[Rfam]
RNA sequence: AAUCGGCUUAGUUAGGAGGCAGAAAUCGAUUCGAAAAACAGAGAUAUCGGCUUUCUGAUGUUUCUGGUCGAUUUAACCAAGGCCUUUUUGAGGGGACUCUUGGCUCCUCUUUCUUCACCCAUUGUCCCCCAAGCAGCCUUGGACAUUU
Numbered sequence: 001a002a003u004c005g006g007c008u009u010a011g012u013u014a015g016g017a018g019g020c021a022g023a024a025a026u027c028g029a030u031u032c033g034a035a036a037a038a039c040a041g042a043g044a045u046a047u048c049g050g051c052u053u054u055c056u057g058a059u060g061u062u063u064c065u066g067g068u069c070g071a072u073u074u075a076a077c078c079a080a081g082g083c084c085u086u087u088u089u090g091a092g093g094g095g096a097c098u099c100u101u102g103g104c105u106c107c108u109c110u111u112u113c114u115u116c117a118c119c120c121a122u123u124g125u126c127c128c129c130c131a132a133g134c135a136g137c138c139u140u141g142g143a144c145a146u147u148u
Base pairs, nucleotide, nucleotide: 005020007018008017009016037068039066040065041064044061045060046059047058048057049056050055077142078141079140080139081138082137083136087133088132089131090130092129093128094127095126096125097124100121
The family of this 148-nucleotide RNA sequence from Gossypium barbadense is "Small nucleolar RNA U19". By type it is an H/ACA-box small nucleolar RNA. Taxonomically the source falls in Gossypium (Eukaryota, Streptophyta, Euphyllophyta, Malvales). It scores 86 bits against the family's covariance model.